[Rfam]
RNA sequence: CGUUAAAACAAAAAAAGACAAUGAAAACAGCAUUCAUAAAUACAUAUUGGUGGUGGCGCCCGUUACAACUCCGACAGUCGUAAGGGAGCAGUGCUCGUAUGUAUAUAUGUAUAGCAUAUAACAGAAUAAGAAAAAGAGCCCUGUC
Numbered sequence: 001c002g003u004u005a006a007a008a009c010a011a012a013a014a015a016a017g018a019c020a021a022u023g024a025a026a027a028c029a030g031c032a033u034u035c036a037u038a039a040a041u042a043c044a045u046a047u048u049g050g051u052g053g054u055g056g057c058g059c060c061c062g063u064u065a066c067a068a069c070u071c072c073g074a075c076a077g078u079c080g081u082a083a084g085g086g087a088g089c090a091g092u093g094c095u096c097g098u099a100u101g102u103a104u105a106u107a108u109g110u111a112u113a114g115c116a117u118a119u120a121a122c123a124g125a126a127u128a129a130g131a132a133a134a135a136g137a138g139c140c141c142u143g144u145c
Base pairs, nucleotide, nucleotide: 036108037107038106040104041103042102043101044100045099046098047097049095050094051093052092056089057088059086060085061084066080068078069077070076
The family of this 145-nucleotide RNA from Bacteroides helcogenes is "Bacteroidete tryptophan peptide leader RNA". Rfam classes the family as a cis-regulatory leader. Pairs were carried over by alignment from the consensus structure, which is taken from published work.